[Rfam]
RNA sequence: CUAACAAAAGGAGAUGGCAUUCCUCCUGUUUAAAAACCGUCCAAAUAAAGGGCUGAUGAUGCCUGCGUUCAC
Numbered sequence: 001c002u003a004a005c006a007a008a009a010g011g012a013g014a015u016g017g018c019a020u021u022c023c024u025c026c027u028g029u030u031u032a033a034a035a036a037c038c039g040u041c042c043a044a045a046u047a048a049a050g051g052g053c054u055g056a057u058g059a060u061g062c063c064u065g066c067g068u069u070c071a072c
Stems, first nucleotide, its partner, number of pairs: 010026004016063006039053004